Record summary
The record is a 78-nucleotide RNA from Oreochromis niloticus, which matches "mir-96 microRNA precursor family" in Rfam. The family's consensus secondary structure was predicted with RNAalifold. Gene Ontology terms of the family: miRNA-mediated post-transcriptional gene silencing and RISC complex. Rfam 15.1 lists 691 matches to the family in 590 species. Lineage of the source: Eukaryota > Euacanthomorphacea > Cichlidae > Oreochromini > Oreochromis.

[Rfam]
RNA sequence: UUGCCCAUUUUGGCACUAGCACAUUUUUGCUUUGUUUCUCCUCUUUUGAGCAAUCAUGUGUAGUGCCAAUAUAGGAUG
Numbered sequence: 001u002u003g004c005c006c007a008u009u010u011u012g013g014c015a016c017u018a019g020c021a022c023a024u025u026u027u028u029g030c031u032u033u034g035u036u037u038c039u040c041c042u043c044u045u046u047u048g049a050g051c052a053a054u055c056a057u058g059u060g061u062a063g064u065g066c067c068a069a070u071a072u073a074g075g076a077u078g
Base pairs, nucleotide, nucleotide: 004075005074007072008071010069011068012067013066014065015064016063017062019061020060021059022058023057024056027053028052029051030050031049032048